[Rfam]
RNA sequence: UAUAGGUUAUACGACUGACGGAAGUGGAAUAAACCACAUGAAGUAUAACAAUAAAAGCCGACCGUCUGGGCAAAAAGU
Numbered sequence: 001u002a003u004a005g006g007u008u009a010u011a012c013g014a015c016u017g018a019c020g021g022a023a024g025u026g027g028a029a030u031a032a033a034c035c036a037c038a039u040g041a042a043g044u045a046u047a048a049c050a051a052u053a054a055a056a057g058c059c060g061a062c063c064g065u066c067u068g069g070g071c072a073a074a075a076a077g078u
Base pairs, nucleotide, nucleotide: 006049007048008047009046010045011044012043015040017066018065019064020063021062024037025036026035027034057071058070059069
A member of the RNA family "ZMP/ZTP riboswitch aptamer (pfl RNA motif)" from Clostridium manihotivorum, 78 nucleotides long. A search with the family's covariance model found it, with a score of 57 bits.